[Rfam]
RNA sequence: AAAGUUUGACAGACAAUCGCUGGUGGCUUCGCGCCACGAGAGGAAAGUCCGGGCUCCGCAGGGCAGAAUGCUGGAUAACGUCCAGUCAACGCGAGUUGAAGGAUCAGGGCCACAGAAAUGGACCGCCGAUGAUCUCUAAUCGCCCAAUUUGUUUUUGGGGUCCCCGCAAAGUAAUCGGCAUAAGCUUCGAAAGCUUAACGUCACUUUGUGGGGUAGAGAAACAGGCAAGGAUGGAACCGUGGUGUAAGAGACCACGAGGAGCACUGGCGACUUUGCUCCUGGUAAACCCCAUUUGGAGCAAGACCUAGGAGGACGCAGGCGUUAAGCCAGCCCUAGCCCGGGGUGCGUUCGGGUUGGUCGCUUGAGCCGUAUAGCAAUGUGCGGCCUAGAAAGAUGAUUGUCGCUUCAGUUCGUGGGAGGCUUGCUUCGCGCAGGCCGUUAUGACCACUUGAAGUACAGAACCCGGCUUACGGCAAGCUUUCCGG
Dot-bracket structure: ((((((((.(.(((((((.((.(((((.....))))).))....[[[.[[[[[((((...[[[[.((((((((((.....)))))(((((....)))).)((....(.(((...........(((((..(..(....................................................................................)..)..)))..)).......((((((.......)))))).((((((..(....)..)))))).)))...))))))))))))...((((.....((((((.............(((((.]]]]))))))))))).....))))......((((((((....))))))))..........)))))))...........................................................]]]]]]]]..).))))))))....
Rfam assigns this 485-nucleotide sequence from Cohnella herbarum to the family "Bacterial RNase P class A". NCBI's taxonomy places the organism under Bacteria, Bacillati, Bacilli, Caryophanales, Cohnella. The base pairs follow the family's consensus structure, which is taken from published work. By type it is a ribozyme.